Rfam assigns this 71-nucleotide sequence from Megalops atlanticus to the family "Small nucleolar RNA SNORD19".
Pairs were carried over by alignment from the consensus structure.
The source organism's lineage runs through Eukaryota, Opisthokonta, Vertebrata, Elopiformes and Megalops.
RNA sequence: GAGAAAGGAUGACUCAUGGAUACUGAAAUCAUUGAAGACUUUAAUAAUCCAACUCUGAUCUCAUCUUAGUG
Numbered sequence: 001g002a003g004a005a006a007g008g009a010u011g012a013c014u015c016a017u018g019g020a021u022a023c024u025g026a027a028a029u030c031a032u033u034g035a036a037g038a039c040u041u042u043a044a045u046a047a048u049c050c051a052a053c054u055c056u057g058a059u060c061u062c063a064u065c066u067u068a069g070u071g
Stems, first nucleotide, its partner, number of pairs: 001062004